[Rfam]
Record summary
A member of the RNA family "Bacterial RNase P class A" from Alistipes timonensis, 366 nucleotides long. NCBI's taxonomy places the organism under Bacteria, Bacteroidota, Bacteroidia, Rikenellaceae, Alistipes timonensis. The family's RNA type in Rfam is ribozyme.
RNA sequence: CGGCAGGCCCGCUCUGUCGCUGCCGGCCGCAGGCCGGGAGAGGAAAGUCCGGGCAACACAGAGCGCCACGCAGGCUAACGACCUGACAGCCGUGAGGUUGUGGAAGCGUAACAGAGAACGACCGCCCGCAGGCGACUGCGGGUAAGGGUGAAAAGGCGGGGUAAGAGCCCACCGCGGGGGCAGCAAUGUCGCCCGGCAGUACGUCCCGUGGGUUGCAAGACCGUGUAUACCGGCAAUUAAGGGUUGCUCGCCCGAUGCCGGGGGGUAGGUUGCUCGAGGCAGCAGGAGACUGCCGUCCUAGAUAAAUGACAGGGGCCCGGGGUUCGCCCCGGGAACAGAACCCGGCUUAUAGGGCCUGCACGCACA
Number, nucleotide and partner (000 for none) at each position: 001c362002g361003g359004c358005a357006g356007g355008c354009c353010c352011g350012c314013u313014c312015u311016g310017u309018c308019g000020c040021u039022g000023c037024c036025g035026g034027c033028c032029g000030c000031a000032g028033g027034c026035c025036g024037g023038g000039a021040g020041a000042g000043g000044a000045a348046a347047g346048u000049c345050c344051g343052g342053g341054c215055a214056a213057c212058a000059c000060a000061g249062a248063g247064c246065g000066c211067c210068a209069c208070g207071c085072a084073g083074g082075c000076u000077a000078a000079c000080g000081a000082c074083c073084u072085g071086a101087c000088a099089g098090c097091c096092g000093u000094g000095a000096g091097g090098u089099u088100g000101u086102g206103g205104a000105a000106g204107c203108g202109u201110a200111a000112c000113a000114g000115a000116g000117a000118a000119c000120g000121a000122c147123c146124g143125c142126c141127c140128g139129c138130a137131g136132g000133c000134g000135a000136c131137u130138g129139c128140g127141g126142g125143u124144a000145a000146g123147g122148g000149u000150g000151a000152a000153a000154a000155g173156g172157c000158g170159g169160g168161g000162u000163a000164a000165g000166a000167g000168c160169c159170c158171a000172c156173c155174g197175c195176g194177g193178g192179g000180g189181c188182a187183g000184c000185a000186a000187u182188g181189u180190c000191g000192c178193c177194c176195g175196g000197c174198a000199g000200u110201a109202c108203g107204u106205c103206c102207c070208g069209u068210g067211g066212g057213u056214u055215g054216c000217a000218a000219g271220a270221c269222c268223g000224u000225g000226u000227a000228u000229a000230c261231c260232g259233g258234c257235a000236a000237u000238u000239a000240a000241g253242g252243g251244u250245u000246g064247c063248u062249c061250g244251c243252c242253c241254g000255a000256u000257g234258c233259c232260g231261g230262g000263g000264g000265g000266u000267a000268g222269g221270u220271u219272g000273c000274u000275c000276g000277a000278g297279g296280c295281a000282g293283c292284a291285g290286g000287a000288g000289a000290c285291u284292g283293c282294c000295g280296u279297c278298c000299u000300a000301g000302a000303u000304a000305a000306a000307u000308g018309a017310c016311a015312g014313g013314g012315g000316c000317c000318c000319g000320g000321g000322g000323u000324u000325c000326g000327c000328c000329c000330c000331g000332g000333g000334a000335a000336c000337a000338g000339a000340a000341c053342c052343c051344g050345g049346c047347u046348u045349a000350u011351a000352g010353g009354g008355c007356c006357u005358g004359c003360a000361c002362g001363c000364a000365c000366a000

It scores 224 bits against the family's covariance model.